[Rfam]
RNA sequence: CAUUUCUCCAUGGUGGAGAACUGGACUACACGCCCUGAUGCUACGACUUAAGGUGACUGGUCAUAAAAACUUCAGCAUAGACAAGCUCUAUCGUUGAUAAGACAGCUGCAACACAUAGCUUUCGAGUUAUCAUGAAGCGGCAGAG
Numbered sequence: 001c002a003u004u005u006c007u008c009c010a011u012g013g014u015g016g017a018g019a020a021c022u023g024g025a026c027u028a029c030a031c032g033c034c035c036u037g038a039u040g041c042u043a044c045g046a047c048u049u050a051a052g053g054u055g056a057c058u059g060g061u062c063a064u065a066a067a068a069a070c071u072u073c074a075g076c077a078u079a080g081a082c083a084a085g086c087u088c089u090a091u092c093g094u095u096g097a098u099a100a101g102a103c104a105g106c107u108g109c110a111a112c113a114c115a116u117a118g119c120u121u122u123c124g125a126g127u128u129a130u131c132a133u134g135a136a137g138c139g140g141c142a143g144a145g
Base pairs, nucleotide, nucleotide: 005019006018007017008016009015045062046061047060048059051058052057072097073096074095075094076093077091078090079089080088081087105141106140107139108138109137112134113133115130116129117128118127119126120125
Rfam assigns this 145-nucleotide RNA to the family "RT-11 RNA".
Pairs were carried over by alignment from the consensus structure, which is taken from published work.
By type it is a small RNA.